[Rfam]
RNA sequence: UUUUGCAAUAUGUUCCUGAAUAUGUAAUAUAAGUGUAUUGGGAACAUUUUGCAUCCAU
Numbered sequence: 001u002u003u004u005g006c007a008a009u010a011u012g013u014u015c016c017u018g019a020a021u022a023u024g025u026a027a028u029a030u031a032a033g034u035g036u037a038u039u040g041g042g043a044a045c046a047u048u049u050u051g052c053a054u055c056c057a058u
Base pairs, nucleotide, nucleotide: 004053005052006051007050008049010047011046012045013044014043015042016041017040019039020038021037022036023035024034
Dot-bracket structure: ...(((((.((((((((.((((((.........)))))))))))))).))))).....